[Rfam]
RNA sequence: GGUCAUGAGUGCCAGCGCAAAACCCCGGUUUGCUGGCCGGCAACCCUCCUCCGCGGCGGGGUGCCCCGGGUGACGACCAGGUCCCUCUCUACAAGGAGGGGGGCAAGCGCGGAGG
Numbered sequence: 001g002g003u004c005a006u007g008a009g010u011g012c013c014a015g016c017g018c019a020a021a022a023c024c025c026c027g028g029u030u031u032g033c034u035g036g037c038c039g040g041c042a043a044c045c046c047u048c049c050u051c052c053g054c055g056g057c058g059g060g061g062u063g064c065c066c067c068g069g070g071u072g073a074c075g076a077c078c079a080g081g082u083c084c085c086u087c088u089c090u091a092c093a094a095g096g097a098g099g100g101g102g103g104c105a106a107g108c109g110c111g112g113a114g115g
Stems, first nucleotide, its partner, number of pairs: 001078004009038001011037006021030002039065003044061003048056002081104010
SAM (S-adenosyl methionine) riboswitch aptamer: a 115-nucleotide sequence from Oerskovia sp. Root918. Pairs were carried over by alignment from the consensus structure, which is taken from published work. Its family is annotated with regulation of gene expression and S-adenosylmethionine metabolic process in the Gene Ontology. NCBI's taxonomy places the organism under Bacteria, Actinomycetota, Actinomycetes, Micrococcales, Oerskovia. The match comes from Rfam's covariance-model search (117 bits). SAM-IV is a mRNA element that regulates gene expression via direct sensing of S-adenosylmethionine (SAM or AdoMet). SAM-IV riboswitches share conserved nucleotide positions with the previously described SAM-I riboswitches sequence analysis and molecular recognition experiments suggest that SAM-I and SAM-IV riboswitches share similar ligand binding sites, but have different scaffolds.